[Rfam]
RNA: Small nucleolar RNA SNORD22
Organism: Catagonus wagneri
RNA sequence: UCCCAGUGAAGAAACAAUCAUUUGCAAUCUUAUCUCCUGUCCUAGUCCCAGAGCCUGUAAAGGUGAACCCACUGGGGCUAGCUAGAGGAGAAGAGGAGAGUUGUUCCAGAAGGAACUGUCUGAGGGAU
Numbered sequence: 001u002c003c004c005a006g007u008g009a010a011g012a013a014a015c016a017a018u019c020a021u022u023u024g025c026a027a028u029c030u031u032a033u034c035u036c037c038u039g040u041c042c043u044a045g046u047c048c049c050a051g052a053g054c055c056u057g058u059a060a061a062g063g064u065g066a067a068c069c070c071a072c073u074g075g076g077g078c079u080a081g082c083u084a085g086a087g088g089a090g091a092a093g094a095g096g097a098g099a100g101u102u103g104u105u106c107c108a109g110a111a112g113g114a115a116c117u118g119u120c121u122g123a124g125g126g127a128u
Stems, first nucleotide, its partner, number of pairs: 001127004